[Rfam]
RNA sequence: GGAGCAGAAAACAAGUACCCUUUUUAAGAGUUUUUCUAUGGAAGGAGAAUAUAACCGUCCUGCAGUAAAGCGGGUAAAUAUGUGCCUUGACGCGGUUGGCCGGACGCUUCUUGCAUGGUCAGGGAUGGCGAUAAUAUACGCUGCUUGGAAUCCAGCUAAGUACCUGAUUACAUGACCAGUACCGCAAAGGAGAACACAACGCGCCCCUACAAUAACACUCCGCGAGGCAUCUUUAUAAAAACAAAAGAGG
Number, nucleotide and partner (000 for none) at each position: 001g000002g000003a000004g058005c057006a000007g055008a000009a000010a000011a000012c000013a000014a000015g000016u000017a000018c000019c045020c044021u043022u042023u041024u040025u000026a000027a000028g000029a000030g000031u000032u000033u000034u000035u000036c000037u000038a000039u000040g024041g023042a022043a021044g020045g019046a000047g000048a000049a000050u000051a000052u000053a000054a000055c007056c000057g005058u004059c000060c000061u000062g000063c000064a000065g000066u000067a000068a000069a000070g000071c000072g000073g000074g000075u000076a000077a000078a000079u000080a000081u000082g230083u229084g228085c227086c226087u225088u224089g223090a000091c222092g185093c184094g183095g182096u181097u178098g177099g176100c000101c174102g000103g000104a000105c000106g114107c113108u000109u000110c000111u000112u000113g107114c106115a000116u000117g169118g168119u167120c166121a165122g164123g163124g000125a000126u000127g000128g000129c000130g000131a000132u000133a000134a000135u000136a000137u000138a000139c000140g000141c000142u000143g000144c000145u000146u000147g000148g000149a000150a000151u000152c000153c000154a000155g000156c000157u000158a000159a000160g000161u000162a000163c123164c122165u121166g120167a119168u118169u117170a000171c000172a000173u000174g101175a000176c099177c098178a097179g000180u000181a096182c095183c094184g093185c092186a000187a000188a000189g221190g220191a219192g218193a000194a000195c000196a000197c000198a000199a000200c000201g000202c000203g000204c000205c000206c000207c000208u000209a000210c000211a000212a000213u000214a000215a000216c000217a000218c192219u191220c190221c189222g091223c089224g088225a087226g086227g085228c084229a083230u082231c000232u000233u000234u000235a000236u000237a000238a000239a000240a000241a000242c000243a000244a000245a000246a000247g000248a000249g000250g000

The record is a 250-nucleotide RNA sequence, which matches "RT-2 RNA" in Rfam. Rfam classes the family as a small RNA. The sequence is in the family's curated seed alignment.